[Rfam]
RNA: Small nucleolar RNA snoR27
Organism: Anisodus acutangulus
RNA sequence: GGUGGAUCCAUGAUGUGAUACAGAAUUUUUAAACUGCGUUAUCUUUCUAGAAUUCCCAGUUUAUCGGAUUGAAGAAACAUUUUGUUUUGCUGAGAUCCAAC
Numbered sequence: 001g002g003u004g005g006a007u008c009c010a011u012g013a014u015g016u017g018a019u020a021c022a023g024a025a026u027u028u029u030u031a032a033a034c035u036g037c038g039u040u041a042u043c044u045u046u047c048u049a050g051a052a053u054u055c056c057c058a059g060u061u062u063a064u065c066g067g068a069u070u071g072a073a074g075a076a077a078c079a080u081u082u083u084g085u086u087u088u089g090c091u092g093a094g095a096u097c098c099a100a101c
Stems, first nucleotide, its partner, number of pairs: 001101001003099005